RNA sequence: AUCUUCCUUGUCUUGGGGAGCAGAAAUGUUCAAUGAACGUAUAGUGAGGACAUUGCUGCUGACACCAAAGAUAUAAAUCUAAGCCCCCGUUCGUUGGUUAUUGAAGCCAAAUGAUCGGAAUUUUUGGAAAA
Number, nucleotide and partner (000 for none) at each position: 001a000002u000003c000004u000005u019006c018007c017008u016009u015010g000011u000012c000013u000014u000015g009016g008017g007018g006019a005020g059021c058022a057023g056024a000025a054026a053027u052028g051029u050030u049031c048032a000033a000034u000035g000036a000037a045038c044039g000040u000041a000042u000043a000044g038045u037046g000047a000048g031049g030050a029051c028052a027053u026054u025055g000056c023057u022058g021059c020060u000061g000062a000063c000064a000065c000066c000067a000068a000069a000070g000071a000072u000073a000074u000075a000076a000077a000078u000079c000080u000081a000082a000083g000084c000085c000086c000087c118088c117089g116090u000091u114092c113093g000094u000095u109096g108097g107098u106099u105100a000101u000102u000103g000104a000105a099106g098107c097108c096109a095110a000111a000112u000113g092114a091115u000116c089117g088118g087119a000120a000121u000122u000123u000124u000125u000126g000127g000128a000129a000130a000131a000